Background: The record is a 95-nucleotide sequence from Arabis nemorensis, which matches "MIR173 microRNA precursor family" in Rfam. The family has 2 seed sequences and 6 matches in Rfam 15.1. It scores 73 bits against the family's covariance model.
[Rfam]
RNA sequence: UAAGCACUUUCGCUUGCAGAGAGAAAUCACAGUGACUAAGGCUUUCGUUGGGUCUCUUCUUCUUCUGUGAUUUUCUCUGCAAGCAAAAGAGCUUG
Numbered sequence: 001u002a003a004g005c006a007c008u009u010u011c012g013c014u015u016g017c018a019g020a021g022a023g024a025a026a027u028c029a030c031a032g033u034g035a036c037u038a039a040g041g042c043u044u045u046c047g048u049u050g051g052g053u054c055u056c057u058u059c060u061u062c063u064u065c066u067g068u069g070a071u072u073u074u075c076u077c078u079g080c081a082a083g084c085a086a087a088a089g090a091g092c093u094u095g
Stems, first nucleotide, its partner, number of pairs: 001095005007089004012084007020076006027070006034063001039061003